The record is a 67-nucleotide RNA from Falsihalocynthiibacter arcticus, which matches "Singlet oxygen resistance RNA X" in Rfam. About the family: SorX (RSs2461)like SorY is a singlet oxygen induced sRNA that counteracts oxidative stress by targeting mRNA for a transporter in Rhodobacter. It also has an impact on resistance against organic hydroperoxides. It targets SD sequence of potA mRNA via an aSD sequence. It is annotated as a small RNA. It scores 55 bits against the family's covariance model.

[Rfam]
RNA sequence: UUCCCGGCGACUGGGUUAAGUCGCACCUCCCUGUUGACUUGCCCGGGCCUUGUGCCCGGGUUUUUUA
Numbered sequence: 001u002u003c004c005c006g007g008c009g010a011c012u013g014g015g016u017u018a019a020g021u022c023g024c025a026c027c028u029c030c031c032u033g034u035u036g037a038c039u040u041g042c043c044c045g046g047g048c049c050u051u052g053u054g055c056c057c058g059g060g061u062u063u064u065u066u067a
Stems, first nucleotide, its partner, number of pairs: 007024005041061008